[Rfam]
RNA sequence: UGAGUGGAGCGAGGAGGCGCGGCUAAAGCCGAGGAAAGUCCGGACUCCAGGGGCAAGGUACCGGAUAACGUCCGGAGGGAGUGAUCCCUGGAUAGGGCCAUAGAAAAGAAAACCACCUUAAUGGUAAGGGUGGAACGGUGAGGUAAGAGCUCACCAGGUAUGGAGUAAUCCAUACGCUUGGUAACCCCUACCUGGAGCAAGGUCAAGCAGAGCUUGGGUGGCCCGCCCUAUAGCUCGGGUAGACCGCUUGAGGAAUUUGGUAACAAAUUCCCCAGAUAGAUGCCUCCAAAAACAGAAUCCGGCUUACUGCUCCACUCGAUUA
Numbered sequence: 001u002g003a004g005u006g007g008a009g010c011g012a013g014g015a016g017g018c019g020c021g022g023c024u025a026a027a028g029c030c031g032a033g034g035a036a037a038g039u040c041c042g043g044a045c046u047c048c049a050g051g052g053g054c055a056a057g058g059u060a061c062c063g064g065a066u067a068a069c070g071u072c073c074g075g076a077g078g079g080a081g082u083g084a085u086c087c088c089u090g091g092a093u094a095g096g097g098c099c100a101u102a103g104a105a106a107a108g109a110a111a112a113c114c115a116c117c118u119u120a121a122u123g124g125u126a127a128g129g130g131u132g133g134a135a136c137g138g139u140g141a142g143g144u145a146a147g148a149g150c151u152c153a154c155c156a157g158g159u160a161u162g163g164a165g166u167a168a169u170c171c172a173u174a175c176g177c178u179u180g181g182u183a184a185c186c187c188c189u190a191c192c193u194g195g196a197g198c199a200a201g202g203u204c205a206a207g208c209a210g211a212g213c214u215u216g217g218g219u220g221g222c223c224c225g226c227c228c229u230a231u232a233g234c235u236c237g238g239g240u241a242g243a244c245c246g247c248u249u250g251a252g253g254a255a256u257u258u259g260g261u262a263a264c265a266a267a268u269u270c271c272c273c274a275g276a277u278a279g280a281u282g283c284c285u286c287c288a289a290a291a292a293c294a295g296a297a298u299c300c301g302g303c304u305u306a307c308u309g310c311u312c313c314a315c316u317c318g319a320u321u322a
Stems, first nucleotide, its partner, number of pairs: 001318010011307001013287006020031004036305003040302005045197004051224004056193005061075005076089005090188002095186002097182003113129002115125003137155006157177001158175007201245004210236005216228004252271008
RNA: Bacterial RNase P class A
Organism: Thermosipho melanesiensis